[Rfam]
RNA sequence: ACUCAUACCUUGCAGGGGAAAUACCAUGGUCAUGAAAGUGGUUUUCCCAGGGUGAGGCUCAUCCAUUGCACUUCAGGUGUGUUCAUCCCUGUGAUUUCCCAGGAGACAACUGCAUAAUUUGUGGCAGUGGGGAUUGCAUUUGUGUUUUCCCUG
Numbered sequence: 001a002c003u004c005a006u007a008c009c010u011u012g013c014a015g016g017g018g019a020a021a022u023a024c025c026a027u028g029g030u031c032a033u034g035a036a037a038g039u040g041g042u043u044u045u046c047c048c049a050g051g052g053u054g055a056g057g058c059u060c061a062u063c064c065a066u067u068g069c070a071c072u073u074c075a076g077g078u079g080u081g082u083u084c085a086u087c088c089c090u091g092u093g094a095u096u097u098c099c100c101a102g103g104a105g106a107c108a109a110c111u112g113c114a115u116a117a118u119u120u121g122u123g124g125c126a127g128u129g130g131g132g133a134u135u136g137c138a139u140u141u142g143u144g145u146u147u148u149c150c151c152u153g
Stems, first nucleotide, its partner, number of pairs: 012113004016048006023042005049090004054086001056083003060079004092108002095104001098102001128153006136145003
RNA: U1 spliceosomal RNA